[Rfam]
RNA sequence: GUUUGUACUUUUCCACAGCUUUCUUGAACUGCAUGAUCAGUAUCCUGCUAACAAGCUACCUAGCGUAACAAAGUGGGGCUAUGCAUGGCUACUGCGGUUCAAUAAAGCUGUGGGAAGAUACGGAUA
Numbered sequence: 001g002u003u004u005g006u007a008c009u010u011u012u013c014c015a016c017a018g019c020u021u022u023c024u025u026g027a028a029c030u031g032c033a034u035g036a037u038c039a040g041u042a043u044c045c046u047g048c049u050a051a052c053a054a055g056c057u058a059c060c061u062a063g064c065g066u067a068a069c070a071a072a073g074u075g076g077g078g079c080u081a082u083g084c085a086u087g088g089c090u091a092c093u094g095c096g097g098u099u100c101a102a103u104a105a106a107g108c109u110g111u112g113g114g115a116a117g118a119u120a121c122g123g124a125u126a
Stems, first nucleotide, its partner, number of pairs: 003123005013113003017109006024102004029097005